This 110-nucleotide sequence from Listeria kieliensis belongs to the Rfam family "Listeria LhrC".
Rfam 15.1 lists 13 matches to the family in 12 species.
This RNA was identifed by screening for RNA molecules which co-immunoprecipitated with the RNA chaperone Hfq.
Rfam links the family to the GO terms negative regulation of translational initiation and mRNA binding.
It scores 113 bits against the family's covariance model.

[Rfam]
RNA sequence: AUAAGCUAACAACAAACAACUUUUUCAUUCUUUCCCUUUUUUGAAUGAAAAUCUCAAACUCCCUUUUUGACCAGUGCGGUUUCCUCCCUUUUUUCCGCACUGGUUUUUUG
Numbered sequence: 001a002u003a004a005g006c007u008a009a010c011a012a013c014a015a016a017c018a019a020c021u022u023u024u025u026c027a028u029u030c031u032u033u034c035c036c037u038u039u040u041u042u043g044a045a046u047g048a049a050a051a052u053c054u055c056a057a058a059c060u061c062c063c064u065u066u067u068u069g070a071c072c073a074g075u076g077c078g079g080u081u082u083c084c085u086c087c088c089u090u091u092u093u094u095c096c097g098c099a100c101u102g103g104u105u106u107u108u109u110g
Stems, first nucleotide, its partner, number of pairs: 022051009071103009